[Rfam]
RNA: tp2
RNA sequence: GGUAUUCCUUAUCUAUCUGAUUACGUUAAUUGUCUGGAACCUGUCCCAUUGCACUCUUUGCCCUUCAUUCUUCAGGUCGUAUCUUUGUUGGCUACGCUCCUCACCCCAGUCACAUAGUUCACUAUGCUCCUGGGGAUUCGGUCGCUUGCCGCCGCGAUACAACCUGAAUUAUUUUGGGCAACCAAAAGCGCAAUAAGACAGGUUCUGCGUGAGUUGCCGCGCGUUUAAAGAAC
Numbered sequence: 001g002g003u004a005u006u007c008c009u010u011a012u013c014u015a016u017c018u019g020a021u022u023a024c025g026u027u028a029a030u031u032g033u034c035u036g037g038a039a040c041c042u043g044u045c046c047c048a049u050u051g052c053a054c055u056c057u058u059u060g061c062c063c064u065u066c067a068u069u070c071u072u073c074a075g076g077u078c079g080u081a082u083c084u085u086u087g088u089u090g091g092c093u094a095c096g097c098u099c100c101u102c103a104c105c106c107c108a109g110u111c112a113c114a115u116a117g118u119u120c121a122c123u124a125u126g127c128u129c130c131u132g133g134g135g136a137u138u139c140g141g142u143c144g145c146u147u148g149c150c151g152c153c154g155c156g157a158u159a160c161a162a163c164c165u166g167a168a169u170u171a172u173u174u175u176g177g178g179c180a181a182c183c184a185a186a187a188g189c190g191c192a193a194u195a196a197g198a199c200a201g202g203u204u205c206u207g208c209g210u211g212a213g214u215u216g217c218c219g220c221g222c223g224u225u226u227a228a229a230g231a232a233c
Base pairs, nucleotide, nucleotide: 001218002217003216004215023210024209025208026207036206037205038204039203040202041201042200043199044198045197048194049193050192051191052190054188055187057185058184